M-box riboswitch aptamer (ykoK leader): a 166-nucleotide RNA sequence from Jeotgalibaca porci. The base pairs follow the family's consensus structure. The match comes from Rfam's covariance-model search (134 bits). M-box riboswitch, also know as ykoK leader is described as a metaloregulatory RNA that sense divalent metals and function as a genetic control element of genes related to divalent metal transport in bacteria. It was first reported upstream of the B.subtilis ykoK gene and genes with related functions in other bacteria.
[Rfam]
RNA sequence: GAAUAGCCUUGUUAGGUGAGGCGUCUGCAUGUGAGAUACGCUACUGCCCAGAAAUGUCCAAAGACACCAAUGGGUUACCAGGAAUCUUCGAAUUAAGGGGAUUCUUAAUGUAGCUGGGGGAAACCCCUAUGCCAUGCAGUGCUAAAACUCGACGAAGAGGUCAAAA
Numbered sequence: 001g002a003a004u005a006g007c008c009u010u011g012u013u014a015g016g017u018g019a020g021g022c023g024u025c026u027g028c029a030u031g032u033g034a035g036a037u038a039c040g041c042u043a044c045u046g047c048c049c050a051g052a053a054a055u056g057u058c059c060a061a062a063g064a065c066a067c068c069a070a071u072g073g074g075u076u077a078c079c080a081g082g083a084a085u086c087u088u089c090g091a092a093u094u095a096a097g098g099g100g101a102u103u104c105u106u107a108a109u110g111u112a113g114c115u116g117g118g119g120g121a122a123a124c125c126c127c128u129a130u131g132c133c134a135u136g137c138a139g140u141g142c143u144a145a146a147a148c149u150c151g152a153c154g155a156a157g158a159g160g161u162c163a164a165a166a
Stems, first nucleotide, its partner, number of pairs: 006162001008160003011153002013096001015149003020143003025139007033132001040114005046075005055066004081105004087099003116127003